[Rfam]
RNA: Small nucleolar RNA SNORA13
Organism: Dicentrarchus labrax
RNA sequence: UGCCUUUAUGUGUUGCCCUUUCAUUGUUCCGUUAGUGAUUGGGGUGUCAAAUAAGGCAUACAGUGACACUUGUGACUGUCUAUGUUUAAAUGGGUUUCAAAGUGACUCUUUUACACAAACGGCUACAAGGACACAU
Numbered sequence: 001u002g003c004c005u006u007u008a009u010g011u012g013u014u015g016c017c018c019u020u021u022c023a024u025u026g027u028u029c030c031g032u033u034a035g036u037g038a039u040u041g042g043g044g045u046g047u048c049a050a051a052u053a054a055g056g057c058a059u060a061c062a063g064u065g066a067c068a069c070u071u072g073u074g075a076c077u078g079u080c081u082a083u084g085u086u087u088a089a090a091u092g093g094g095u096u097u098c099a100a101a102g103u104g105a106c107u108c109u110u111u112u113a114c115a116c117a118a119a120c121g122g123c124u125a126c127a128a129g130g131a132c133a134c135a136u
Base pairs, nucleotide, nucleotide: 002057003056004055005054006053011049012048014046015045016044017043018041021038022037023036024035025034069129070128071127072126076122077121078120079119085117087115090111094106095105